[Rfam]
RNA: MIR8565 microRNA precursor family
Organism: Amborella trichopoda
RNA sequence: CCCACCUCCAUGUGUGUAGGACCCCAAAGGAUCACCAUUAAAUUUGGCAUAGAUCUAUAAAAAAGUUAUCACGUGGGUGUGGGACUUGACUUUUCUAGAGAUCAGUGUUAAAUUUAAUGGUAAUCCUUUGGGGUCCUAUACACAUGGGUGUGGG
Numbered sequence: 001c002c003c004a005c006c007u008c009c010a011u012g013u014g015u016g017u018a019g020g021a022c023c024c025c026a027a028a029g030g031a032u033c034a035c036c037a038u039u040a041a042a043u044u045u046g047g048c049a050u051a052g053a054u055c056u057a058u059a060a061a062a063a064a065g066u067u068a069u070c071a072c073g074u075g076g077g078u079g080u081g082g083g084a085c086u087u088g089a090c091u092u093u094u095c096u097a098g099a100g101a102u103c104a105g106u107g108u109u110a111a112a113u114u115u116a117a118u119g120g121u122a123a124u125c126c127u128u129u130g131g132g133g134u135c136c137u138a139u140a141c142a143c144a145u146g147g148g149u150g151u152g153g154g
Stems, first nucleotide, its partner, number of pairs: 002153004007148007015140014030125003034121017052103005058097002061094008069082005